[Rfam]
RNA sequence: GGCAUGGGGCUGGCGAUCACCCCAUCAGGCCCCGGCCAAAGCAUCGCGUCCCCCACCUUGCAACCGCUGUUUCAGCCCCUUGUUCAAGCCUUGAGGACGCCCGCGUG
Dot-bracket structure: ....(((((..........))))).....................((((((...........................................)))))).......
Source information:
The record is a 107-nucleotide sequence from Sandarakinorhabdus cyanobacteriorum, which matches "chrB-a RNA" in Rfam. Rfam 15.1 lists 347 matches to the family in 339 species. The organism belongs to Sandarakinorhabdus, within Bacteria. Pairs were carried over by alignment from the consensus structure, which is taken from published work.